Notes:
The family of this 166-nucleotide RNA from Zostera marina is "U12 minor spliceosomal RNA".

RNA sequence: UUGCCUUAAACUAAUGAGUAAGGAAAACAAAGCGGGUGGCGGGAGCUGCCCGCAGCGCACGUAAUACAGUUUUAUGCGCACAUAAUUUUUGGAGGGAUUAUAGGCUGGCCAAGUUGUGGAUGCUGCUUACUUAUGCAGAACCCUCUUGUGCGGGCCUCCCUAUCCC
Numbered sequence: 001u002u003g004c005c006u007u008a009a010a011c012u013a014a015u016g017a018g019u020a021a022g023g024a025a026a027a028c029a030a031a032g033c034g035g036g037u038g039g040c041g042g043g044a045g046c047u048g049c050c051c052g053c054a055g056c057g058c059a060c061g062u063a064a065u066a067c068a069g070u071u072u073u074a075u076g077c078g079c080a081c082a083u084a085a086u087u088u089u090u091g092g093a094g095g096g097a098u099u100a101u102a103g104g105c106u107g108g109c110c111a112a113g114u115u116g117u118g119g120a121u122g123c124u125g126c127u128u129a130c131u132u133a134u135g136c137a138g139a140a141c142c143c144u145c146u147u148g149u150g151c152g153g154g155c156c157u158c159c160c161u162a163u164c165c166c
Stems, first nucleotide, its partner, number of pairs: 004023005032053008055079004094166005102157005108151001110148002116145001118143002123138004

Clan: U2 clan.